[Rfam]
RNA sequence: GUCUGUUACCCGAAUAGUCUCCGUAUGGUGCGCGUGCCCUCCGAGCGAGUGUGCUAGGGCAGCAGACCGAA
Numbered sequence: 001g002u003c004u005g006u007u008a009c010c011c012g013a014a015u016a017g018u019c020u021c022c023g024u025a026u027g028g029u030g031c032g033c034g035u036g037c038c039c040u041c042c043g044a045g046c047g048a049g050u051g052u053g054c055u056a057g058g059g060c061a062g063c064a065g066a067c068c069g070a071a
Stems, first nucleotide, its partner, number of pairs: 001067007009059003017033002019030001021028002036054002039051001
RNA: DUF3800-IX RNA